[Rfam]
RNA sequence: AUCACCUGCGUAUCUUGUUAAAAUGCAUAUUCUGAUUCGGUAGGUGUGGGUGGGGCAGAGAUCCUGCAUUUUUAACAAGUUCUCAGGUGAUGCUGC
Numbered sequence: 001a002u003c004a005c006c007u008g009c010g011u012a013u014c015u016u017g018u019u020a021a022a023a024u025g026c027a028u029a030u031u032c033u034g035a036u037u038c039g040g041u042a043g044g045u046g047u048g049g050g051u052g053g054g055g056c057a058g059a060g061a062u063c064c065u066g067c068a069u070u071u072u073u074a075a076c077a078a079g080u081u082c083u084c085a086g087g088u089g090a091u092g093c094u095g096c
Stems, first nucleotide, its partner, number of pairs: 003089003010082001014079007021071003025067003031061003

The record is a 96-nucleotide sequence from Rousettus aegyptiacus, which matches "mir-544 microRNA precursor family" in Rfam. It scores 72 bits against the family's covariance model. On this family, see Chiang et al., Genes Dev 2010: "Mammalian microRNAs: experimental evaluation of novel and previously annotated genes". Its family is annotated with RISC complex and miRNA-mediated post-transcriptional gene silencing in the Gene Ontology. Pairs were carried over by alignment from the consensus structure, which was predicted with RNAalifold.